About this RNA
Rfam assigns this 74-nucleotide RNA sequence from Gossypium arboreum to the family "Plastid-ycf2 5UTR RNA".
RNA sequence: UUGCAUCCGGUAAGAAUUGAACUUACGAAUUUGUCAAUUAUGAGUUGGGCGUUUAACCAUUCAACUAUGGACGC
Numbered sequence: 001u002u003g004c005a006u007c008c009g010g011u012a013a014g015a016a017u018u019g020a021a022c023u024u025a026c027g028a029a030u031u032u033g034u035c036a037a038u039u040a041u042g043a044g045u046u047g048g049g050c051g052u053u054u055a056a057c058c059a060u061u062c063a064a065c066u067a068u069g070g071a072c073g074c
Stems, first nucleotide, its partner, number of pairs: 003074002006071003010026005040068003044065006051058001

For this family Rfam cites "Retrograde signaling in plants: A critical review focusing on the GUN pathway and beyond" (Richter et al., Plant Commun, 2023). By type it is a cis-regulatory element. The match comes from Rfam's covariance-model search (76 bits). Rfam describes the family as follows. Plastid ycf2 is a non-coding RNA (ncRNA) recognised in plastids. It was found in the prime untranslated region (5UTR) of ycf2 genes, it presents a tRNA-like motif which suggests it can be involved in mRNA maturation, particularly involved in defining the precise 5' end of the transcript.